[Rfam]
RNA: TPP riboswitch aptamer (THI element)
Organism: Yoonia litorea
RNA sequence: AGCCCUACCUCGGGGGGCCAAUCCUGGCUGAGAUGCGUAUCGCGCGGACCCGUUGAACCUGAACCGGUUAAGACCGGCGGAGGGAAGGUUUAGCAAUUCCGC
Numbered sequence: 001a002g003c004c005c006u007a008c009c010u011c012g013g014g015g016g017g018c019c020a021a022u023c024c025u026g027g028c029u030g031a032g033a034u035g036c037g038u039a040u041c042g043c044g045c046g047g048a049c050c051c052g053u054u055g056a057a058c059c060u061g062a063a064c065c066g067g068u069u070a071a072g073a074c075c076g077g078c079g080g081a082g083g084g085a086a087g088g089u090u091u092a093g094c095a096a097u098u099c100c101g102c
Stems, first nucleotide, its partner, number of pairs: 007089004011052004017028004035045004058083003064077004